[Rfam]
RNA sequence: CCAGAGGAUCGGGCGACCGCGGGCAGCCUUGGCUGCGCGAGGAAAGUCCGGGCUCCACGAAACGACGGUGCCGGGUAACGCCCGGCGGGGGCGACCCCAGGGACAGUGCCACAGAGAGCAGACGGCGACCGCUUCGGCGACGCCACGGUGAAAGGGUGCGGCAAGAGCGCACCGCGCGACCGGUAACGGAAGCGGCAUGGUAAACCCCACCGGGAGCAAGACCGAAUAGGGGCGGCAUGGAACCUUCGCGGUUCCGGGGUGCGUUUCCACCCGCUGCCCGGGUUGGUUGCUGGAGGCGGCGCGCAAGCGUCGUCGUAGAGGAAUGGUCGCCCAUCCCCUUGGGGAGGACAGAACCCGGCUUACAGAUCCUCUGGCGUU
Numbered sequence: 001c002c003a004g005a006g007g008a009u010c011g012g013g014c015g016a017c018c019g020c021g022g023g024c025a026g027c028c029u030u031g032g033c034u035g036c037g038c039g040a041g042g043a044a045a046g047u048c049c050g051g052g053c054u055c056c057a058c059g060a061a062a063c064g065a066c067g068g069u070g071c072c073g074g075g076u077a078a079c080g081c082c083c084g085g086c087g088g089g090g091g092c093g094a095c096c097c098c099a100g101g102g103a104c105a106g107u108g109c110c111a112c113a114g115a116g117a118g119c120a121g122a123c124g125g126c127g128a129c130c131g132c133u134u135c136g137g138c139g140a141c142g143c144c145a146c147g148g149u150g151a152a153a154g155g156g157u158g159c160g161g162c163a164a165g166a167g168c169g170c171a172c173c174g175c176g177c178g179a180c181c182g183g184u185a186a187c188g189g190a191a192g193c194g195g196c197a198u199g200g201u202a203a204a205c206c207c208c209a210c211c212g213g214g215a216g217c218a219a220g221a222c223c224g225a226a227u228a229g230g231g232g233c234g235g236c237a238u239g240g241a242a243c244c245u246u247c248g249c250g251g252u253u254c255c256g257g258g259g260u261g262c263g264u265u266u267c268c269a270c271c272c273g274c275u276g277c278c279c280g281g282g283u284u285g286g287u288u289g290c291u292g293g294a295g296g297c298g299g300c301g302c303g304c305a306a307g308c309g310u311c312g313u314c315g316u317a318g319a320g321g322a323a324u325g326g327u328c329g330c331c332c333a334u335c336c337c338c339u340u341g342g343g344g345a346g347g348a349c350a351g352a353a354c355c356c357g358g359c360u361u362a363c364a365g366a367u368c369c370u371c372u373g374g375c376g377u378u
Stems, first nucleotide, its partner, number of pairs: 001374010011363001012331007020039002023036005044361003048358005053216004061266002066212005071085005086100001087098004101207002106205002108201003123147002125143003130139003155173006174196001175194003180189003220288004230279006257272005295314008
Rfam assigns this 378-nucleotide RNA from Sphingomonas sp. CFBP 8760 to the family "Bacterial RNase P class A".
NCBI's taxonomy places the organism under Bacteria, Pseudomonadati, Pseudomonadota, Sphingomonadales, Sphingomonas.
The base pairs follow the family's consensus structure, which is taken from published work.
The match comes from Rfam's covariance-model search (288 bits).
Rfam classes the family as a ribozyme.